The record is a 74-nucleotide sequence from Muraenolepis orangiensis, which matches "mir-96 microRNA precursor family" in Rfam. Rfam links the family to the GO terms RISC complex and miRNA-mediated post-transcriptional gene silencing. The literature on the family includes a 2002 paper in Genes Dev by Mourelatos et al., "miRNPs: a novel class of ribonucleoproteins containing numerous microRNAs". The base pairs follow the family's consensus structure, which was predicted with RNAalifold.
RNA sequence: UGGCCCGUUUUGGCACUAGCACAUUUUUGCUUCUAUAUACUUUGAGCAAUUAUGUCUGGUGUCAAUAUGGGACG
Numbered sequence: 001u002g003g004c005c006c007g008u009u010u011u012g013g014c015a016c017u018a019g020c021a022c023a024u025u026u027u028u029g030c031u032u033c034u035a036u037a038u039a040c041u042u043u044g045a046g047c048a049a050u051u052a053u054g055u056c057u058g059g060u061g062u063c064a065a066u067a068u069g070g071g072a073c074g
Stems, first nucleotide, its partner, number of pairs: 004071005010065008019057001021055004027049006